[Rfam]
RNA sequence: CCGUGCUUGUCCGGGUUUCGCGACGCUCGAACGCCGUUUACUUUCACAGUCCGUUCGUUGUCGACGAAACCUGCAUAUCGCACGG
Numbered sequence: 001c002c003g004u005g006c007u008u009g010u011c012c013g014g015g016u017u018u019c020g021c022g023a024c025g026c027u028c029g030a031a032c033g034c035c036g037u038u039u040a041c042u043u044u045c046a047c048a049g050u051c052c053g054u055u056c057g058u059u060g061u062c063g064a065c066g067a068a069a070c071c072u073g074c075a076u077a078u079c080g081c082a083c084g085g
Stems, first nucleotide, its partner, number of pairs: 001085006012073009029056005